Overview: Rfam assigns this 204-nucleotide RNA sequence from Vicugna pacos to the family "Small nucleolar RNA SNORA73 family". Pairs were carried over by alignment from the consensus structure, which is taken from published work.
RNA sequence: CCAACGUGGAUACCCCGGGAGGUCACUCUCCCCGAGCUCUGUCCAGGUGGCGUAGGGAAGCAUAGGGCUGUGCCCCGUGAUGAAUAGUCCUUUUCCACAACGUUGGAGAUGAAGCCGGGCCUUGAGUCUGCGCCUGCAUGUUCCUACAGCUUCUCGGAGUCCUGUGGACAAUAACCCGGGAGAUAGACUAUGCAGGAAUCAGCU
Numbered sequence: 001c002c003a004a005c006g007u008g009g010a011u012a013c014c015c016c017g018g019g020a021g022g023u024c025a026c027u028c029u030c031c032c033c034g035a036g037c038u039c040u041g042u043c044c045a046g047g048u049g050g051c052g053u054a055g056g057g058a059a060g061c062a063u064a065g066g067g068c069u070g071u072g073c074c075c076c077g078u079g080a081u082g083a084a085u086a087g088u089c090c091u092u093u094u095c096c097a098c099a100a101c102g103u104u105g106g107a108g109a110u111g112a113a114g115c116c117g118g119g120c121c122u123u124g125a126g127u128c129u130g131c132g133c134c135u136g137c138a139u140g141u142u143c144c145u146a147c148a149g150c151u152u153c154u155c156g157g158a159g160u161c162c163u164g165u166g167g168a169c170a171a172u173a174a175c176c177c178g179g180g181a182g183a184u185a186g187a188c189u190a191u192g193c194a195g196g197a198a199u200c201a202g203c204u
Stems, first nucleotide, its partner, number of pairs: 001106007008044005014036001016034001018029004047098004056091002059088001060085001063082002065078001133196007150182005159169004
The source organism's lineage runs through Eukaryota, Metazoa, Eutheria, Tylopoda and Vicugna. U17 (SNORA73A and SNORA73B) also known as E1 belongs to the H/ACA class of small nucleolar RNAs (snoRNAs). Vertebrate U17 is intron-encoded and ranges in length from 200-230 nucleotides, longer than most snoRNAs. It is one of the most abundant snoRNAs in human cells and is essential for the cleavage of pre-rRNA within the 5' external transcribed spacer (ETS). This cleavage leads to the formation of 18S rRNA. Regions of the U17 RNA are complementary to rRNA and act as guides for RNA/RNA interactions, although these regions do not seem to be well conserved between organisms.